[Rfam]
RNA sequence: AUCAGUGCGGUACCCGUAUCAACGGGUAUGGUCCGACGCCUCUUGAAGGAUAAUAUAGGAUCUUCAUACACCGACUCAAUACGUCCAUGGCGUACAGAACGGUAACAUAUUUCUCCAAUAAUCUGAGGUUGGGUACACGGGGAAACGCAACCCCUUGGGAGGAUGGGUCAUAUGGCUAAAUUGAGCGGG
Number, nucleotide and partner (000 for none) at each position: 001a000002u000003c000004a000005g000006u000007g000008c000009g000010g000011u000012a000013c000014c097015c000016g095017u094018a000019u000020c000021a000022a000023c000024g000025g065026g000027u000028a000029u000030g064031g063032u000033c059034c058035g000036a000037c000038g000039c000040c000041u000042c000043u000044u000045g000046a000047a000048g000049g000050a000051u000052a000053a000054u000055a000056u000057a000058g034059g033060a000061u000062c000063u031064u030065c025066a000067u000068a000069c000070a000071c188072c187073g186074a000075c185076u184077c183078a182079a181080u180081a093082c092083g091084u000085c102086c101087a000088u000089g000090g000091c083092g082093u081094a017095c016096a000097g014098a000099a000100c000101g086102g085103u000104a000105a000106c174107a173108u172109a171110u170111u000112u000113c167114u000115c166116c165117a000118a000119u000120a000121a164122u163123c162124u161125g000126a000127g000128g000129u150130u149131g148132g000133g146134u145135a000136c000137a000138c000139g000140g000141g000142g000143a000144a000145a134146c133147g000148c131149a130150a129151c000152c159153c158154c000155u000156u000157g000158g153159g152160a000161g124162g123163a122164u121165g116166g115167g113168u000169c000170a110171u109172a108173u107174g106175g000176c000177u000178a000179a000180a080181u079182u078183g077184a076185g075186c073187g072188g071189g000
This 189-nucleotide RNA from Anopheles stephensi belongs to the Rfam family "drz-agam-2-2 ribozyme".
Gene Ontology term of the family: catalytic activity.